[Rfam]
Overview:
This 127-nucleotide sequence from Sorex araneus belongs to the Rfam family "Small nucleolar RNA SNORA77". NCBI's taxonomy places the organism under Eukaryota, Chordata, Mammalia, Eulipotyphla, Sorex. ACA63 (SNORA77) is a member of the H/ACA class of snoRNAs that guide the sites of modification of uridines to pseudouridines. This snoRNA was identified by computational screening and its expression in mouse experimentally verified by Northern blot and primer extension analysis. ACA63 is proposed to guide the pseudouridylation of 18S rRNA U814. The sequence is in the family's curated seed alignment.
RNA sequence: GCAGACUCACUCUGCACCCUGCUGCAUCACCAAGCAUGGGUGCUUUUUCUGUCUGCCACAGAAACAUGCCAGGGACUGGUACUGCUUUGACCUAUCAAAGUGGCGAAGCUGCCAUGGGGACACGGGG
Numbered sequence: 001g002c003a004g005a006c007u008c009a010c011u012c013u014g015c016a017c018c019c020u021g022c023u024g025c026a027u028c029a030c031c032a033a034g035c036a037u038g039g040g041u042g043c044u045u046u047u048u049c050u051g052u053c054u055g056c057c058a059c060a061g062a063a064a065c066a067u068g069c070c071a072g073g074g075a076c077u078g079g080u081a082c083u084g085c086u087u088u089g090a091c092c093u094a095u096c097a098a099a100g101u102g103g104c105g106a107a108g109c110u111g112c113c114a115u116g117g118g119g120a121c122a123c124g125g126g127g
Stems, first nucleotide, its partner, number of pairs: 001056006014043006022034001023032002069117003073113002076111001078109001080107001083105004